[Rfam]
The family of this 231-nucleotide RNA from Rhynochetos jubatus is "Small nucleolar RNA SNORD17".
RNA sequence: GUGAGGUGAUGACGAGGUUUAUCCAUUCUCUGAGUGCAGUGCUGCCGCCCUCCUGCAACACCCCGAUUCCUGUUCUAGGGUCUGGGUGCUGUGCAGCCUCCAGAGACCCCCCAGUCUCCCAGUGUCCUACUGGGGGCUGCUGUGGUGUGUGGCUGGCUGCCUGCAGGAGUGACGUGGUGCCGGCAGGGUUGGAGCUGCUCUGUGAGGGGCUCCAUCCCCACCGAGAUGAGG
Numbered sequence: 001g002u003g004a005g006g007u008g009a010u011g012a013c014g015a016g017g018u019u020u021a022u023c024c025a026u027u028c029u030c031u032g033a034g035u036g037c038a039g040u041g042c043u044g045c046c047g048c049c050c051u052c053c054u055g056c057a058a059c060a061c062c063c064c065g066a067u068u069c070c071u072g073u074u075c076u077a078g079g080g081u082c083u084g085g086g087u088g089c090u091g092u093g094c095a096g097c098c099u100c101c102a103g104a105g106a107c108c109c110c111c112c113a114g115u116c117u118c119c120c121a122g123u124g125u126c127c128u129a130c131u132g133g134g135g136g137c138u139g140c141u142g143u144g145g146u147g148u149g150u151g152g153c154u155g156g157c158u159g160c161c162u163g164c165a166g167g168a169g170u171g172a173c174g175u176g177g178u179g180c181c182g183g184c185a186g187g188g189u190u191g192g193a194g195c196u197g198c199u200c201u202g203u204g205a206g207g208g209g210c211u212c213c214a215u216c217c218c219c220a221c222c223g224a225g226a227u228g229a230g231g
Stems, first nucleotide, its partner, number of pairs: 026230003030225002034221002041184004045179001046176002049171001050169005056163002059088005065082001068080004093160006106146002112139005118134007186218003190214004195209002
The snoRNA HBI-43 belongs to the C/D family of snoRNAs, guiding 2'O-ribose methylation at position U3797 of the 28S rRNA. Pseudouridylation in position U3797 is predicted to be guided by the H/ACA snoRNA ACA48. On this family, see Huttenhofer et al., EMBO J 2001: "RNomics: an experimental approach that identifies 201 candidates for novel, small, non-messenger RNAs in mouse". Pairs were carried over by alignment from the consensus structure, which was predicted with RNAalifold. The match comes from Rfam's covariance-model search (111 bits).